[Rfam]
Thermales-rpoB RNA: an 89-nucleotide RNA. The family's RNA type in Rfam is cis-regulatory element. Pairs were carried over by alignment from the consensus structure, which is taken from published work.

RNA sequence: UUUGUGCUCUUUGGUCGGGCCAAGGGAGCACGGUAAGAGCCAGCCGCCGCAAGGGGAUGUACCCUUGCGGAAGAACCCUGUUAGCUUAC
Numbered sequence: 001u002u003u004g005u006g007c008u009c010u011u012u013g014g015u016c017g018g019g020c021c022a023a024g025g026g027a028g029c030a031c032g033g034u035a036a037g038a039g040c041c042a043g044c045c046g047c048c049g050c051a052a053g054g055g056g057a058u059g060u061a062c063c064c065u066u067g068c069g070g071a072a073g074a075a076c077c078c079u080g081u082u083a084g085c086u087u088a089c
Base pairs, nucleotide, nucleotide: 008027009026010024011023012022013021014020047070048069049068050067051066052065053064054063055062